[Rfam]
RNA sequence: UUCAGGUCAUAUGACUGACGGAACCGUGGGAAUAACCACAUGAAGUAUGACCUGAGAAAGCCGACCGUCUGGGCAGUUAAG
Numbered sequence: 001u002u003c004a005g006g007u008c009a010u011a012u013g014a015c016u017g018a019c020g021g022a023a024c025c026g027u028g029g030g031a032a033u034a035a036c037c038a039c040a041u042g043a044a045g046u047a048u049g050a051c052c053u054g055a056g057a058a059a060g061c062c063g064a065c066c067g068u069c070u071g072g073g074c075a076g077u078u079a080a081g
Stems, first nucleotide, its partner, number of pairs: 003054010015042001017069005026039004060074003
Background: The record is an 81-nucleotide sequence from Roseburia sp. CAG:45, which matches "ZMP/ZTP riboswitch aptamer (pfl RNA motif)" in Rfam.